[Rfam]
RNA sequence: CCGUGGCUGGAACCGGUGCUAAAGGGUCCCUUUAGAACCGGCUGGUAACACGCGCCGGUGCUAAAGGGUCACCCUUUAGCACCGGUUCCAGCCGCAGA
Numbered sequence: 001c002c003g004u005g006g007c008u009g010g011a012a013c014c015g016g017u018g019c020u021a022a023a024g025g026g027u028c029c030c031u032u033u034a035g036a037a038c039c040g041g042c043u044g045g046u047a048a049c050a051c052g053c054g055c056c057g058g059u060g061c062u063a064a065a066g067g068g069u070c071a072c073c074c075u076u077u078a079g080c081a082c083c084g085g086u087u088c089c090a091g092c093c094g095c096a097g098a
Stems, first nucleotide, its partner, number of pairs: 003095025029067002034062002038058002045051002
Dot-bracket structure: ..(((((((((((((((((((((((((.((...((..((.....((...)).....))..))...))...)))))))))))))))))))))))))...

Notes
The record is a 98-nucleotide sequence from Sorghum bicolor, which matches "MIR5387 microRNA precursor family" in Rfam. NCBI's taxonomy places the organism under Eukaryota, Embryophyta, Magnoliopsida, Petrosaviidae, Sorghum.